The family of this 127-nucleotide RNA sequence from Lactococcus garvieae is "Ribosomal protein L10 leader". For this family Rfam cites "Ribosomal protein L10(L12)4 autoregulates expression of the Bacillus subtilis rplJL operon by a transcription attenuation mechanism" (Yakhnin et al., Nucleic Acids Res, 2015). The family's consensus secondary structure was predicted with CMfinder. The match comes from Rfam's covariance-model search (79 bits). Rfam links the family to the GO term regulation of gene expression. Rfam's curators write: This family is a putative r-protein leader autoregulatory structure found in B. subtilis and other low-GC Gram-positive bacteria. It is located in the 5' untranslated regions of mRNAs encoding ribosomal proteins L10 and L12 (rplJ-rplL). A Rho-independent transcription terminator structure that is probably involved in regulation is included at the 3' end. Rfam classes the family as a cis-regulatory leader. Lineage of the source: Bacteria > Bacillati > Bacilli > Lactococcus > Lactococcus garvieae.
RNA sequence: AGUUCUGAAAAGGACUGACCGAAGACAGUUGGGGACAUAAGUCAUAAGCAUCCAACCGAGGACAAACAUUUUAAACAAUGAUUGAACUCUCUAUGUCUUUUGGUCGUGGGGAUUUUUAUUUGUAAAA
Numbered sequence: 001a002g003u004u005c006u007g008a009a010a011a012g013g014a015c016u017g018a019c020c021g022a023a024g025a026c027a028g029u030u031g032g033g034g035a036c037a038u039a040a041g042u043c044a045u046a047a048g049c050a051u052c053c054a055a056c057c058g059a060g061g062a063c064a065a066a067c068a069u070u071u072u073a074a075a076c077a078a079u080g081a082u083u084g085a086a087c088u089c090u091c092u093a094u095g096u097c098u099u100u101u102g103g104u105c106g107u108g109g110g111g112a113u114u115u116u117u118a119u120u121u122g123u124a125a126a127a
Stems, first nucleotide, its partner, number of pairs: 028056006034043003088112008097103001